The family of this 442-nucleotide part of an RNA from Methanotorris igneus is "Archaeal large subunit ribosomal RNA".
[Rfam]
RNA sequence: CCCCCCGAAAUAGCCCGCAGGUUAGCCGGGGGUUAGGUAGAUGGCGGGGUAGAGCACUGAUAGGGUGGUUAGGGGGCGAGAGCCCUCGCCAUCCUGUCAAACUCCGAACCCGCCAUCGCCGUAGCCCCCGAGUGAGGGCAUACGGGUAAGCCGUAUGUCCGAGACGGGAACAACCGAGACCCGGGUUAAGGCCCCUAAGUGCCGGUUAAGUGUGAAGCCGAAGGGAGUCCCUGGCCUAAGACAGCAGGGAGGUUGGCUUAGAAGCAGCCAUCCUUUAAAGAGUGCGUAACAGCUCACCUGCCGAGGUCAGGGGCCCCGAAAAUGGACGGGGCUAAACCGGCCGCCGAGACCCGGGGGCGCCGAAAGGUGAUCCGGUAGGGGGGCGUCCCACGAGGGUAGAAGCUCGGCCGUGAGGUCGAGUGGACCUCGUGGGAACGAGGAU
Numbered sequence: 001c002c003c004c005c006c007g008a009a010a011u012a013g014c015c016c017g018c019a020g021g022u023u024a025g026c027c028g029g030g031g032g033u034u035a036g037g038u039a040g041a042u043g044g045c046g047g048g049g050u051a052g053a054g055c056a057c058u059g060a061u062a063g064g065g066u067g068g069u070u071a072g073g074g075g076g077c078g079a080g081a082g083c084c085c086u087c088g089c090c091a092u093c094c095u096g097u098c099a100a101a102c103u104c105c106g107a108a109c110c111c112g113c114c115a116u117c118g119c120c121g122u123a124g125c126c127c128c129c130g131a132g133u134g135a136g137g138g139c140a141u142a143c144g145g146g147u148a149a150g151c152c153g154u155a156u157g158u159c160c161g162a163g164a165c166g167g168g169a170a171c172a173a174c175c176g177a178g179a180c181c182c183g184g185g186u187u188a189a190g191g192c193c194c195c196u197a198a199g200u201g202c203c204g205g206u207u208a209a210g211u212g213u214g215a216a217g218c219c220g221a222a223g224g225g226a227g228u229c230c231c232u233g234g235c236c237u238a239a240g241a242c243a244g245c246a247g248g249g250a251g252g253u254u255g256g257c258u259u260a261g262a263a264g265c266a267g268c269c270a271u272c273c274u275u276u277a278a279a280g281a282g283u284g285c286g287u288a289a290c291a292g293c294u295c296a297c298c299u300g301c302c303g304a305g306g307u308c309a310g311g312g313g314c315c316c317c318g319a320a321a322a323u324g325g326a327c328g329g330g331g332c333u334a335a336a337c338c339g340g341c342c343g344c345c346g347a348g349a350c351c352c353g354g355g356g357g358c359g360c361c362g363a364a365a366g367g368u369g370a371u372c373c374g375g376u377a378g379g380g381g382g383g384c385g386u387c388c389c390a391c392g393a394g395g396g397u398a399g400a401a402g403c404u405c406g407g408c409c410g411u412g413a414g415g416u417c418g419a420g421u422g423g424a425c426c427u428c429g430u431g432g433g434a435a436c437g438a439g440g441a442u
Stems, first nucleotide, its partner, number of pairs: 001383006011024005026132001027130006036120003040117008052105001053103002059098010072087006136160009165176003180355007190345003199342001201341006223317003227314010244301005250274003255269003275279001280295001284293002356373002358369004384437001386434010402421008